[Rfam]
RNA sequence: GGGGCUGUAUUGGUUUUGACAGCAAGCCGAGUCGGAGUGGUAGCAUGCCGAGCGUCGUGAUGCUAGCUCGUAAAUAUCAGGUCUCAACUUAUAAAUGGCGAAAAUAGCUACGCUCUCGCUGCUUAAUAUCACUAAGUGAAUUAGCUUAAUCUCAGGGUCCAAGGUGGCUCAGAGACGAGAAUCCCGCCCGAGUUCCUGCUCUUUGGACAAAGGCAUAUGGGGUUUCAAAAACCAUAGAGCUGGCAGGUGUGACGCCCUUAAGCAUCUGCAAGAUUUAGGGGAUAAGAAUUUUACUAGAAGGUCUACUGUCAGGUAAAAUUCCGAAAACUCAGGUGAAGACUAAGCAUGUAGCGACCAUUUGGGUUCCUUGUUUGGACGAGGGUUCGACACCCUCCAGCUCCACAA
Dot-bracket structure: (((((((............(((((((....(((.(((((((.(((((((((((..[.[[[.....)))))......]]].].................................((.(.((........)).).))...........................................((((((.((...((((..[[[[[.[))))...)).....)))))).........].]]]]]..((((((((...[.[[[[..))))))))........]]]].]..(((((((((..((..[[[[.[[.))..)))))))))..........]]...]]]]...)))))...).))))))).)))..))))).))...(((((.......))))))))))))....
RNA: transfer-messenger RNA
Organism: Acetobacteroides hydrogenigenes